[Rfam]
The family of this 76-nucleotide RNA from Cellulomonas fimi is "c-di-GMP-I-GGC riboswitch aptamer".
RNA sequence: GACGACAAGGGCAAACCCGUCGCGAGACGGGGACGCAAAGCCAUGGGACCCCAAGAGGUCUGCCAGGCCGCCGAAU
Numbered sequence: 001g002a003c004g005a006c007a008a009g010g011g012c013a014a015a016c017c018c019g020u021c022g023c024g025a026g027a028c029g030g031g032g033a034c035g036c037a038a039a040g041c042c043a044u045g046g047g048a049c050c051c052c053a054a055g056a057g058g059u060c061u062g063c064c065a066g067g068c069c070g071c072c073g074a075a076u
Base pairs, nucleotide, nucleotide: 001076003073004072011036012035016031017030018029019028020027021026034062040068041067042066044065045064046063047060048059049058
Clan: c-di-GMP_I riboswitch clan. On this family, see Weinberg et al., Proc Natl Acad Sci U S A 2017: "Bioinformatic analysis of riboswitch structures uncovers variant classes with altered ligand specificity". The match comes from Rfam's covariance-model search (69 bits). Gene Ontology term of the family: cyclic-di-GMP binding.